[Rfam]
RNA sequence: UCACAAAAACAGCCGAAUCCUGAAUUUCAGGUACGGGGGACUGCAAUACAUGGGGUGAAUCGCCGUCCGGCAUCGCCGGGGCGUAGGGACUGUUCUUCCACCGAACCCGUCAACUAACCUCGGAGGCUUUAGGAGGAAUUUGA
Numbered sequence: 001u002c003a004c005a006a007a008a009a010c011a012g013c014c015g016a017a018u019c020c021u022g023a024a025u026u027u028c029a030g031g032u033a034c035g036g037g038g039g040a041c042u043g044c045a046a047u048a049c050a051u052g053g054g055g056u057g058a059a060u061c062g063c064c065g066u067c068c069g070g071c072a073u074c075g076c077c078g079g080g081g082c083g084u085a086g087g088g089a090c091u092g093u094u095c096u097u098c099c100a101c102c103g104a105a106c107c108c109g110u111c112a113a114c115u116a117a118c119c120u121c122g123g124a125g126g127c128u129u130u131a132g133g134a135g136g137a138a139u140u141u142g143a
Stems, first nucleotide, its partner, number of pairs: 011128004019031002034122005044052002053108003061083004086102002